[Rfam]
RNA sequence: CAGCAUUUCCUAAACACAUGCACUGACUUGGAAUAUGAAUGCAGUAAGUGCUACUUGUUGGGGAAUGUUGC
Numbered sequence: 001c002a003g004c005a006u007u008u009c010c011u012a013a014a015c016a017c018a019u020g021c022a023c024u025g026a027c028u029u030g031g032a033a034u035a036u037g038a039a040u041g042c043a044g045u046a047a048g049u050g051c052u053a054c055u056u057g058u059u060g061g062g063g064a065a066u067g068u069u070g071c
Stems, first nucleotide, its partner, number of pairs: 004067008014058003020051005026045003
The record is a 71-nucleotide sequence from Labrus bergylta, which matches "miR-430 microRNA precursor family" in Rfam. The match comes from Rfam's covariance-model search (53 bits). Taxonomically the source falls in Labrus (Eukaryota, Gnathostomata, Acanthomorphata, Labridae). On this family, see Giraldez et al., Science 2005: "MicroRNAs regulate brain morphogenesis in zebrafish". The family is grouped with related families in Rfam's "mir-290 clan". Gene Ontology terms of the family: miRNA-mediated post-transcriptional gene silencing and RISC complex. Rfam 15.1 lists 24,817 matches to the family in 105 species.